[Rfam]
RNA sequence: AUCACAUGACAGCCGAAUCACCGAAAAAACCGGUGUACGGGGGAUUUUUGGUCGUUUGACCUGGGGUGAAUUGCGUUUGCAACGGGUAGCUCGUUAUCCGAACCCGACAACUAACCUCGGAGGCAUAAACGAGAGGACGG
Numbered sequence: 001a002u003c004a005c006a007u008g009a010c011a012g013c014c015g016a017a018u019c020a021c022c023g024a025a026a027a028a029a030c031c032g033g034u035g036u037a038c039g040g041g042g043g044a045u046u047u048u049u050g051g052u053c054g055u056u057u058g059a060c061c062u063g064g065g066g067u068g069a070a071u072u073g074c075g076u077u078u079g080c081a082a083c084g085g086g087u088a089g090c091u092c093g094u095u096a097u098c099c100g101a102a103c104c105c106g107a108c109a110a111c112u113a114a115c116c117u118c119g120g121a122g123g124c125a126u127a128a129a130c131g132a133g134a135g136g137a138c139g140g
Stems, first nucleotide, its partner, number of pairs: 012124003019035005038119005047063001064105003072081003084099004
c-di-AMP riboswitch aptamer (ydaO/yuaA leader): a 140-nucleotide sequence from Alicyclobacillus acidoterrestris. Its family is annotated with regulation of gene expression and cyclic-di-AMP binding in the Gene Ontology. The match comes from Rfam's covariance-model search (72 bits).